[Rfam]
Shown here is an 87-nucleotide sequence from Cnephaeus nilssonii, a member of the family "mir-9195 microRNA precursor family".
Rfam 15.1 lists 438 matches to the family in 7 species.
Its family is annotated with RISC complex and miRNA-mediated post-transcriptional gene silencing in the Gene Ontology.
RNA sequence: AGAGGCCCUCCGUGGCUGGGGUGGAAUGCUUGCCUCGUCGCCAUGGCAAUGAAGCAAGCAUUCUGCCAGGCUGCUCACCCUGCCCAC
Numbered sequence: 001a002g003a004g005g006c007c008c009u010c011c012g013u014g015g016c017u018g019g020g021g022u023g024g025a026a027u028g029c030u031u032g033c034c035u036c037g038u039c040g041c042c043a044u045g046g047c048a049a050u051g052a053a054g055c056a057a058g059c060a061u062u063c064u065g066c067c068a069g070g071c072u073g074c075u076c077a078c079c080c081u082g083c084c085c086a087c
Stems, first nucleotide, its partner, number of pairs: 004084003012074006020067014037050002040047002
Dot-bracket structure: ...(((.....((((((..((((((((((((((...((.((....)).))...)))))))))))))).)))))).......)))...